Rfam assigns this 76-nucleotide sequence from Pantherophis guttatus to the family "Epstein-Barr virus stable intronic sequence RNA 2". On this family, see Moss et al., RNA Biol 2014: "RNA families in Epstein-Barr virus". It scores 43 bits against the family's covariance model. The base pairs follow the family's consensus structure. Taxonomically the source falls in Pantherophis (Eukaryota, Teleostomi, Sauria, Squamata).
[Rfam]
RNA sequence: UGUUUGGAAUCGGGAAGGGGAUCGCGGGUCUGCUGUUCGGGCAGCAGACCCGCGAUCCCCCUCCCGAUUCCAAACA
Numbered sequence: 001u002g003u004u005u006g007g008a009a010u011c012g013g014g015a016a017g018g019g020g021a022u023c024g025c026g027g028g029u030c031u032g033c034u035g036u037u038c039g040g041g042c043a044g045c046a047g048a049c050c051c052g053c054g055a056u057c058c059c060c061c062u063c064c065c066g067a068u069u070c071c072a073a074a075c076a
Base pairs, nucleotide, nucleotide: 001076002075003074004073005072006071007070008069009068011066012065017060018059019058020057021056022055023054024053025052026051027050028049029048030047031046032045033044034043035042
It is annotated as a non-coding RNA gene.